[Rfam]
RNA sequence: GGGGGCGAUGAUGAGUCACUAACAGACCUGUAAUGAUUUGCGAAAAUGAUCGCAAUUAUUAUGAACAUCUAAGGGACUGAGCCUUC
Numbered sequence: 001g002g003g004g005g006c007g008a009u010g011a012u013g014a015g016u017c018a019c020u021a022a023c024a025g026a027c028c029u030g031u032a033a034u035g036a037u038u039u040g041c042g043a044a045a046a047u048g049a050u051c052g053c054a055a056u057u058a059u060u061a062u063g064a065a066c067a068u069c070u071a072a073g074g075g076a077c078u079g080a081g082c083c084u085u086c
Stems, first nucleotide, its partner, number of pairs: 002085005
RNA: Small nucleolar RNA SNORD25